[Rfam]
Overview:
This 102-nucleotide sequence from Bacillus sp. FJAT-49736 belongs to the Rfam family "Purine riboswitch aptamer". It scores 90 bits against the family's covariance model.
RNA sequence: UAAUUUUAUAAUGAUUUACCUUGUAUAUGUUCAAGAAUAUGGCUUGAACGUUUCUACCGGGCUGCCGUAAAUAGCCUGUCUACAAGGGGCAAUGAUAAAGUG
Number, nucleotide and partner (000 for none) at each position: 001u000002a000003a000004u000005u000006u000007u000008a000009u000010a000011a000012u000013g000014a000015u000016u000017u000018a000019c087020c086021u085022u084023g083024u082025a081026u000027a000028u000029g049030u048031u047032c046033a045034a044035g043036a000037a000038u000039a000040u000041g000042g000043c035044u034045u033046g032047a031048a030049c029050g000051u000052u000053u000054c000055u000056a000057c000058c078059g077060g076061g075062c074063u073064g072065c000066c000067g000068u000069a000070a000071a000072u064073a063074g062075c061076c060077u059078g058079u000080c000081u025082a024083c023084a022085a021086g020087g019088g000089g000090c000091a000092a000093u000094g000095a000096u000097a000098a000099a000100g000101u000102g000